[Rfam]
RNA: Small nucleolar RNA SNORA70
Organism: Capra hircus
RNA sequence: UUGCAGCCAAUUAAGCCAACUAGGCUCCAUUCCCCAUGGGGGCUUGGUGUGCAGUGACUGCAAAUGUCAGGUAGUAUAUGCAGCCUGUUGCCUGUGUGGGCUGCCCUAAGGGACCUUGGAAACAGCC
Numbered sequence: 001u002u003g004c005a006g007c008c009a010a011u012u013a014a015g016c017c018a019a020c021u022a023g024g025c026u027c028c029a030u031u032c033c034c035c036a037u038g039g040g041g042g043c044u045u046g047g048u049g050u051g052c053a054g055u056g057a058c059u060g061c062a063a064a065u066g067u068c069a070g071g072u073a074g075u076a077u078a079u080g081c082a083g084c085c086u087g088u089u090g091c092c093u094g095u096g097u098g099g100g101c102u103g104c105c106c107u108a109a110g111g112g113a114c115c116u117u118g119g120a121a122a123c124a125g126c127c
Stems, first nucleotide, its partner, number of pairs: 002053004019048004025042004070115003081103006